[Rfam]
This 116-nucleotide RNA sequence from Orycteropus afer belongs to the Rfam family "Small nucleolar RNA SNORA70". About the family: snoRNA U70 seems to be exclusive to mammals and is a member of the H/ACA class of snoRNA which contain H (ANANNA) and ACA box motifs. Pairs were carried over by alignment from the consensus structure, which was predicted with PFOLD. It scores 73 bits against the family's covariance model. Rfam classes the family as an H/ACA-box small nucleolar RNA.
RNA sequence: CUGCAGCCAACUAAGCCAAUCAUUCUCCUUCCCUGUGGGGAGUGAUGUGCCCUCCUCAGUAGUGUAUGCAGCCUGUUGGCACAUAGGGGUUGCCCUAAGAAACCUUUGAGACAGCU
Numbered sequence: 001c002u003g004c005a006g007c008c009a010a011c012u013a014a015g016c017c018a019a020u021c022a023u024u025c026u027c028c029u030u031c032c033c034u035g036u037g038g039g040g041a042g043u044g045a046u047g048u049g050c051c052c053u054c055c056u057c058a059g060u061a062g063u064g065u066a067u068g069c070a071g072c073c074u075g076u077u078g079g080c081a082c083a084u085a086g087g088g089g090u091u092g093c094c095c096u097a098a099g100a101a102a103c104c105u106u107u108g109a110g111a112c113a114g115c116u
Stems, first nucleotide, its partner, number of pairs: 003050003019046004025042004059103002069092006